RNA sequence: UCUACAGUGCAUGUGUCUCCAGUGUUUGUGUGCUACUGGAGAUAUGGCUCUGUUGGAAU
Numbered sequence: 001u002c003u004a005c006a007g008u009g010c011a012u013g014u015g016u017c018u019c020c021a022g023u024g025u026u027u028g029u030g031u032g033c034u035a036c037u038g039g040a041g042a043u044a045u046g047g048c049u050c051u052g053u054u055g056g057a058a059u
Stems, first nucleotide, its partner, number of pairs: 001057003004053004009048002012046012